[Rfam]
RNA sequence: AGCAGAUAUCUGGGGAGCUUAACGCGUUAGGCUGAGAGGAAGAUACGAACGAAAUUCGACCCAUUAACCUGAUACGGAUAAUCCCGGCGUAGGUAGCAUAUAGCCAUCUAUCU
Numbered sequence: 001a002g003c004a005g006a007u008a009u010c011u012g013g014g015g016a017g018c019u020u021a022a023c024g025c026g027u028u029a030g031g032c033u034g035a036g037a038g039g040a041a042g043a044u045a046c047g048a049a050c051g052a053a054a055u056u057c058g059a060c061c062c063a064u065u066a067a068c069c070u071g072a073u074a075c076g077g078a079u080a081a082u083c084c085c086g087g088c089g090u091a092g093g094u095a096g097c098a099u100a101u102a103g104c105c106a107u108c109u110a111u112c113u
Stems, first nucleotide, its partner, number of pairs: 006101004011063004017032005039057003068093004075086003

The record is a 113-nucleotide RNA from Bacillus benzoevorans, which matches "TPP riboswitch aptamer (THI element)" in Rfam. NCBI's taxonomy places the organism under Bacteria, Bacillati, Bacilli, Caryophanales, Bacillus. The family's consensus secondary structure is taken from published work.